[Rfam]
RNA sequence: AGGACCUCGUGCUCCUCUGUUGAACUCAAAAGCAGAACCUGUGUUGACUUCAACGGGAGCAAGACCAUGCCCU
Numbered sequence: 001a002g003g004a005c006c007u008c009g010u011g012c013u014c015c016u017c018u019g020u021u022g023a024a025c026u027c028a029a030a031a032g033c034a035g036a037a038c039c040u041g042u043g044u045u046g047a048c049u050u051c052a053a054c055g056g057g058a059g060c061a062a063g064a065c066c067a068u069g070c071c072c073u
Base pairs, nucleotide, nucleotide: 002071003070005069007067009065010064013061015059016058017057018055019054020053021052022051023050024049026047027046028045029044031042033041
Rfam assigns this 73-nucleotide RNA from Calidris pygmaea to the family "mir-1744 microRNA precursor family". The organism belongs to Calidris, within Eukaryota. Gene Ontology terms of the family: miRNA-mediated post-transcriptional gene silencing and RISC complex. It scores 80 bits against the family's covariance model.